[Rfam]
RNA sequence: AAUGAGUUGUUUCGUCGCUUUUUAUUAUAAGUUAUAUGGGCUUUUUUGUGAAAUCGAAAAGCUCUAUGAUAUCUGUGAUGGAGUUAUCAACUAUAGAUAUUAUAGAGCC
Numbered sequence: 001a002a003u004g005a006g007u008u009g010u011u012u013c014g015u016c017g018c019u020u021u022u023u024a025u026u027a028u029a030a031g032u033u034a035u036a037u038g039g040g041c042u043u044u045u046u047u048g049u050g051a052a053a054u055c056g057a058a059a060a061g062c063u064c065u066a067u068g069a070u071a072u073c074u075g076u077g078a079u080g081g082a083g084u085u086a087u088c089a090a091c092u093a094u095a096g097a098u099a100u101u102a103u104a105g106a107g108c109c
Base pairs, nucleotide, nucleotide: 001026002025003024004023005022006021009018010017029043030042031041032040061108062107063106064105066103067102068101069100070099071098072097073096076093077092079090081088
Rfam assigns this 109-nucleotide RNA from Streptococcus sp. DD10 to the family "Streptococcus RNA 266". The base pairs follow the family's consensus structure.